[Rfam]
This 107-nucleotide sequence from Pectobacterium atrosepticum belongs to the Rfam family "Yersinia sRNA 224". The match comes from Rfam's covariance-model search (87 bits). The family's RNA type in Rfam is small RNA. Gene Ontology term of the family: response to temperature stimulus.
RNA sequence: GAGUUUGCUGACAAAGUACGCUGAGCGGUGAUAAUGGGUAGAUCGUAAAGACGCUGCAAGUACGUCCCUGUAAGCUCGGAUUGCGCCAUCCAUGGCGCAAACGCUUU
Numbered sequence: 001g002a003g004u005u006u007g008c009u010g011a012c013a014a015a016g017u018a019c020g021c022u023g024a025g026c027g028g029u030g031a032u033a034a035u036g037g038g039u040a041g042a043u044c045g046u047a048a049a050g051a052c053g054c055u056g057c058a059a060g061u062a063c064g065u066c067c068c069u070g071u072a073a074g075c076u077c078g079g080a081u082u083g084c085g086c087c088a089u090c091c092a093u094g095g096c097g098c099a100a101a102c103g104c105u106u107u
Stems, first nucleotide, its partner, number of pairs: 013107005019027003030077002041066003045063003052056001081100008